Shown here is a 110-nucleotide RNA sequence from Glycine max, a member of the family "MIR1520 microRNA precursor family".
Rfam links the family to the GO terms miRNA-mediated post-transcriptional gene silencing and RISC complex.
RNA sequence: UUUUUAUUGGACGUUGACUGCCACGUGUCAUGCUUUUAUUGGAUGUUAAUUUUGUGUGCCUAAUUAACGUCAACUUCUAAUAAAAGCGUGAUACGUGACGGUCAACGUCU
Numbered sequence: 001u002u003u004u005u006a007u008u009g010g011a012c013g014u015u016g017a018c019u020g021c022c023a024c025g026u027g028u029c030a031u032g033c034u035u036u037u038a039u040u041g042g043a044u045g046u047u048a049a050u051u052u053u054g055u056g057u058g059c060c061u062a063a064u065u066a067a068c069g070u071c072a073a074c075u076u077c078u079a080a081u082a083a084a085a086g087c088g089u090g091a092u093a094c095g096u097g098a099c100g101g102u103c104a105a106c107g108u109c110u
Stems, first nucleotide, its partner, number of pairs: 020099001022097002025094002029090003033086004038081003
It scores 70 bits against the family's covariance model. The source organism's lineage runs through Eukaryota, Embryophyta, Spermatophyta, Gunneridae and Glycine subgen. Soja. The family has 18 seed sequences and 1,934 matches in Rfam 15.1.